[Rfam]
RNA sequence: GCAUGCAUGGCUCCUUGCAUGCCAUCUGAGGAGGCCACCAACUUUUUGAUGAGCUUUGCAGGUGGCAUGCAGGGAGCCAGGCACAC
Numbered sequence: 001g002c003a004u005g006c007a008u009g010g011c012u013c014c015u016u017g018c019a020u021g022c023c024a025u026c027u028g029a030g031g032a033g034g035c036c037a038c039c040a041a042c043u044u045u046u047u048g049a050u051g052a053g054c055u056u057u058g059c060a061g062g063u064g065g066c067a068u069g070c071a072g073g074g075a076g077c078c079a080g081g082c083a084c085a086c
Base pairs, nucleotide, nucleotide: 001086004083005082006081008079009078010077011076012075013074014073016071017070018069019068020067021066022065023064024063027060028059
A member of the RNA family "mir-160 microRNA precursor family" from Hevea brasiliensis, 86 nucleotides long.
The literature on the family includes a 2002 paper in Cell by Rhoades et al., "Prediction of plant microRNA targets".
Rfam 15.1 lists 1,502 matches to the family in 247 species.
A search with the family's covariance model found it, with a score of 56 bits.